transfer-messenger RNA: a 382-nucleotide RNA sequence from Actinoplanes derwentensis. On this family, see Mao et al., RNA Biol 2010: "Variations on the tmRNA gene". Its family is annotated with RNA catabolic process in the Gene Ontology. The base pairs follow the family's consensus structure, which is taken from published work. Clan: tRNA clan.
[Rfam]
RNA sequence: GGGGGUGACUGGUUUCGACUUCGUACGUGGAGACAGGGGAAGCGAGCCGAGGAAGCCGACGUCGUCUCGAGAAUCGGUCGUCGGAAACUUAUAAGCGCCAACGAUAAGUUGAACGCUGACCAGUACGCUCUCGCCGCCUGAGGCAAGUAGCGUGGUCUGUCGGUCUGGGAGCGUCUCCGUUCCAGCUGCCGGCAUAAUUUAGGAGACUGGCCAAGGGGCCCCGGUCACGGGGGCCUUGCGGUGAGAUUAAUCAGUGACUGGGCCCGUCGUCCGAACUUGCUCACGUGAGUCGGAGGGCCGAGUAGGGACACAGUGAGCUGCGCUCGGAGAAGCCCUGACGAAGCAACGAAGGACCCGGGUUCGAUUCCCGGCACCUCCACUC
Numbered sequence: 001g002g003g004g005g006u007g008a009c010u011g012g013u014u015u016c017g018a019c020u021u022c023g024u025a026c027g028u029g030g031a032g033a034c035a036g037g038g039g040a041a042g043c044g045a046g047c048c049g050a051g052g053a054a055g056c057c058g059a060c061g062u063c064g065u066c067u068c069g070a071g072a073a074u075c076g077g078u079c080g081u082c083g084g085a086a087a088c089u090u091a092u093a094a095g096c097g098c099c100a101a102c103g104a105u106a107a108g109u110u111g112a113a114c115g116c117u118g119a120c121c122a123g124u125a126c127g128c129u130c131u132c133g134c135c136g137c138c139u140g141a142g143g144c145a146a147g148u149a150g151c152g153u154g155g156u157c158u159g160u161c162g163g164u165c166u167g168g169g170a171g172c173g174u175c176u177c178c179g180u181u182c183c184a185g186c187u188g189c190c191g192g193c194a195u196a197a198u199u200u201a202g203g204a205g206a207c208u209g210g211c212c213a214a215g216g217g218g219c220c221c222c223g224g225u226c227a228c229g230g231g232g233g234c235c236u237u238g239c240g241g242u243g244a245g246a247u248u249a250a251u252c253a254g255u256g257a258c259u260g261g262g263c264c265c266g267u268c269g270u271c272c273g274a275a276c277u278u279g280c281u282c283a284c285g286u287g288a289g290u291c292g293g294a295g296g297g298c299c300g301a302g303u304a305g306g307g308a309c310a311c312a313g314u315g316a317g318c319u320g321c322g323c324u325c326g327g328a329g330a331a332g333c334c335c336u337g338a339c340g341a342a343g344c345a346a347c348g349a350a351g352g353a354c355c356c357g358g359g360u361u362c363g364a365u366u367c368c369c370g371g372c373a374c375c376u377c378c379a380c381u382c
Stems, first nucleotide, its partner, number of pairs: 001378007019351006028342001032339001034337005043326005048069005056084006129155002132152003136148002158194006165185006173207006210242003215237004223259006261299005267293003276289002279318004355371005